[Rfam]
RNA sequence: CUGGUCCCGGUUCACGCACGUCCAUCCGGACGGGCGACCCGGAGCC
Numbered sequence: 001c002u003g004g005u006c007c008c009g010g011u012u013c014a015c016g017c018a019c020g021u022c023c024a025u026c027c028g029g030a031c032g033g034g035c036g037a038c039c040c041g042g043a044g045c046c
Base pairs, nucleotide, nucleotide: 003046004045005044007042008041009040010039015036016035017034019032020031021030022029023028
RNA: L31-Actinobacteria ribosomal protein leader
Organism: Nocardioides jejuensis